[Rfam]
RNA sequence: GGUAUACUGUGUUUAUUCCGUUAUAUAAUGUCCAAAUUGGUGGACAGUCUCUACACUUAACCGUAAAUUAAGUACUAUGACGUAUUCUACGUUUGAG
Number, nucleotide and partner (000 for none) at each position: 001g000002g000003u000004a000005u000006a000007c000008u000009g000010u000011g000012u000013u000014u000015a000016u000017u000018c000019c082020g081021u080022u079023a078024u077025a076026u000027a000028a000029u046030g045031u044032c043033c042034a041035a000036a000037u000038u000039g000040g000041u034042g033043g032044a031045c030046a029047g000048u000049c000050u000051c000052u000053a000054c000055a073056c072057u071058u070059a069060a068061c000062c000063g000064u000065a000066a000067a000068u060069u059070a058071a057072g056073u055074a000075c000076u025077a024078u023079g022080a021081c020082g019083u000084a000085u000086u000087c000088u000089a000090c000091g000092u000093u000094u000095g000096a000097g000
The family of this 97-nucleotide sequence from Erysipelothrix sp. HDW6B is "Purine riboswitch aptamer". Clan: Purine riboswitches. Riboswitches are metabolite binding domains within certain messenger RNAs that serve as precision sensors for their corresponding targets. Allosteric rearrangement of mRNA structure is mediated by ligand binding, and this results in modulation of gene expression. A class of riboswitches that selectively recognises guanine and becomes saturated at concentrations as low as 5 nM. In Bacillus subtilis, this mRNA motif is located on at least five separate transcriptional units that together encode 17 genes that are mostly involved in purine transport and purine nucleotide biosynthesis.